The record is a 66-nucleotide sequence from Enterococcus sp. HSIEG1, which matches "Enterococcus sRNA A9" in Rfam. Pairs were carried over by alignment from the consensus structure, which was predicted with RNAfold. Lineage of the source: Bacteria > Bacillati > Bacillota > Enterococcaceae > Enterococcus.
RNA sequence: GCGAAAUACGAUAAUUGGUACAAGUUACAACACAAAGGGCCGACCUACUGCGAAUAGGUCGGCCCU
Numbered sequence: 001g002c003g004a005a006a007u008a009c010g011a012u013a014a015u016u017g018g019u020a021c022a023a024g025u026u027a028c029a030a031c032a033c034a035a036a037g038g039g040c041c042g043a044c045c046u047a048c049u050g051c052g053a054a055u056a057g058g059u060c061g062g063c064c065c066u
Stems, first nucleotide, its partner, number of pairs: 006019002008016001036066012